[Rfam]
RNA sequence: CAGCCUGACAUGAUGAGCUUGGUUCAUGUCUCUUCUCUGAGGUUUCUGCUGGAGAUACUCCAAAGACUCUGAUCAGGCUG
Number, nucleotide and partner (000 for none) at each position: 001c080002a079003g078004c077005c076006u000007g000008a000009c000010a000011u000012g000013a000014u000015g000016a000017g000018c000019u000020u000021g000022g000023u000024u000025c000026a000027u000028g000029u000030c000031u000032c000033u000034u000035c000036u000037c000038u000039g000040a000041g000042g000043u000044u000045u000046c000047u000048g000049c000050u000051g000052g000053a000054g000055a000056u000057a000058c000059u000060c000061c000062a000063a000064a000065g000066a000067c000068u000069c000070u000071g000072a000073u000074c000075a000076g005077g004078c003079u002080g001
This 80-nucleotide sequence from Calypte anna belongs to the Rfam family "Small nucleolar RNA SNORD111".
For this family Rfam cites "Purified box C/D snoRNPs are able to reproduce site-specific 2'-O-methylation of target RNA in vitro" (Galardi et al., Mol Cell Biol, 2002).
Its family is annotated with nucleolus and RNA processing in the Gene Ontology.
The source organism's lineage runs through Eukaryota, Metazoa, Saurischia, Apodiformes and Calypte.
The base pairs follow the family's consensus structure, which was predicted with RNAalifold.